[Rfam]
DnaX ribosomal frameshifting element: a 65-nucleotide RNA sequence from Brenneria rubrifaciens. This family represents a ribosomal frameshifting element found in the mRNA of the dnaX gene in E. coli. Pairs were carried over by alignment from the consensus structure, which is taken from published work. By type it is a frameshift element. The match comes from Rfam's covariance-model search (42 bits). The source organism's lineage runs through Bacteria, Pseudomonadati, Enterobacterales, Pectobacteriaceae and Brenneria.
RNA sequence: AGCGGGGGACAACCCCGCCAAAAAAGGCUGAACCGGCAGCGUUAGAGAAAACGCGGCCGGCGACC
Numbered sequence: 001a002g003c004g005g006g007g008g009a010c011a012a013c014c015c016c017g018c019c020a021a022a023a024a025a026g027g028c029u030g031a032a033c034c035g036g037c038a039g040c041g042u043u044a045g046a047g048a049a050a051a052c053g054c055g056g057c058c059g060g061c062g063a064c065c
Stems, first nucleotide, its partner, number of pairs: 033060005039054002042050002